[Rfam]
RNA sequence: GCGAUGAGGAUAGCCCGUGAGGUCACUCUCCCAAGGCUCUGUCCAGAUGGCAUAGCAAAGCAUGGGUCACUGAAGUCCCUUUCCACUGAAGUCCCUUUCCACAACAUUGGAGAUGAAGCUGGGCUCUGAGUCUGCACCUGCAUAGUCUGACCGCUUCCCAAGAGUCCCGUGGACAGUGACUGAGGAGUCAUGCAUGGUUUAGAA
Dot-bracket structure: .(((((.(((((.((...(((....)))......))...)))))...(((.........(.((.((...................))...)).)....)))...)))))...........................(.(((((..........((((.(....((((...)))).......).))))..))))).)........
Numbered sequence: 001g002c003g004a005u006g007a008g009g010a011u012a013g014c015c016c017g018u019g020a021g022g023u024c025a026c027u028c029u030c031c032c033a034a035g036g037c038u039c040u041g042u043c044c045a046g047a048u049g050g051c052a053u054a055g056c057a058a059a060g061c062a063u064g065g066g067u068c069a070c071u072g073a074a075g076u077c078c079c080u081u082u083c084c085a086c087u088g089a090a091g092u093c094c095c096u097u098u099c100c101a102c103a104a105c106a107u108u109g110g111a112g113a114u115g116a117a118g119c120u121g122g123g124c125u126c127u128g129a130g131u132c133u134g135c136a137c138c139u140g141c142a143u144a145g146u147c148u149g150a151c152c153g154c155u156u157c158c159c160a161a162g163a164g165u166c167c168c169g170u171g172g173a174c175a176g177u178g179a180c181u182g183a184g185g186a187g188u189c190a191u192g193c194a195u196g197g198u199u200u201a202g203a204a
Stems, first nucleotide, its partner, number of pairs: 002109005008044005014036002019028003048101003060094001062092002065087002137196001139194005154187004159182001164174004
The record is a 204-nucleotide RNA from Jaculus jaculus, which matches "Small nucleolar RNA SNORA73 family" in Rfam.
On this family, see Cervelli et al., J Mol Evol 2002: "Comparative Structure Analysis of Vertebrate U17 Small Nucleolar RNA (snoRNA)".
Its family is annotated with RNA processing and nucleolus in the Gene Ontology.
Rfam's curators write: U17 (SNORA73A and SNORA73B) also known as E1 belongs to the H/ACA class of small nucleolar RNAs (snoRNAs). Vertebrate U17 is intron-encoded and ranges in length from 200-230 nucleotides, longer than most snoRNAs. It is one of the most abundant snoRNAs in human cells and is essential for the cleavage of pre-rRNA within the 5' external transcribed spacer (ETS). This cleavage leads to the formation of 18S rRNA. Regions of the U17 RNA are complementary to rRNA and act as guides for RNA/RNA interactions, although these regions do not seem to be well conserved between organisms.
Rfam classes the family as an H/ACA-box small nucleolar RNA.